[Rfam]
RNA: Group II catalytic intron D1-D4-5
RNA sequence: AUGAACUGAUGCCUUGAAAGGUGGAAUGAUGGGGUAACGCCCUGAAACGCCUUCCCUGAUACUCCGGCAGGCGAUGGAUAGUGUUAUCUGUUCAUGGUCUGAAGCCCGGUGAAGCCGGCUGAGAGGAUGCCCUAACGUGUAAUGACGAGGAACGGCGAGCCAGAGGUGGCCGAGCAUCUGAUAGGCCGGGGGUCUAUAAA
Numbered sequence: 001a002u003g004a005a006c007u008g009a010u011g012c013c014u015u016g017a018a019a020g021g022u023g024g025a026a027u028g029a030u031g032g033g034g035u036a037a038c039g040c041c042c043u044g045a046a047a048c049g050c051c052u053u054c055c056c057u058g059a060u061a062c063u064c065c066g067g068c069a070g071g072c073g074a075u076g077g078a079u080a081g082u083g084u085u086a087u088c089u090g091u092u093c094a095u096g097g098u099c100u101g102a103a104g105c106c107c108g109g110u111g112a113a114g115c116c117g118g119c120u121g122a123g124a125g126g127a128u129g130c131c132c133u134a135a136c137g138u139g140u141a142a143u144g145a146c147g148a149g150g151a152a153c154g155g156c157g158a159g160c161c162a163g164a165g166g167u168g169g170c171c172g173a174g175c176a177u178c179u180g181a182u183a184g185g186c187c188g189g190g191g192g193u194c195u196a197u198a199a200a
Stems, first nucleotide, its partner, number of pairs: 018053006031043004054192004064109004068101005074095008116188005125179006131150003137146002156172002159170004